[Rfam]
RNA sequence: UAGCCCGGCGGCGACAGGACACGUGGAGGCCAGGUGGGGAGGCGGGAGGGGCCGGGCAGGCGCCGCUGUCGCCGCGCGCCGGGACUUGUACA
Number, nucleotide and partner (000 for none) at each position: 001u000002a000003g052004c051005c049006c048007g000008g000009c000010g031011g030012c029013g000014a000015c000016a000017g000018g000019a000020c000021a000022c000023g000024u000025g000026g000027a000028g000029g012030c011031c010032a000033g000034g000035u000036g000037g000038g000039g000040a000041g000042g000043c000044g000045g000046g000047a000048g006049g005050g000051g004052c003053c000054g000055g000056g000057c000058a000059g000060g000061c000062g000063c000064c000065g000066c000067u000068g000069u000070c000071g000072c000073c000074g000075c000076g000077c000078g000079c000080c000081g000082g000083g000084a000085c000086u000087u000088g000089u000090a000091c000092a000
RNA: GRIK4 3 prime UTR element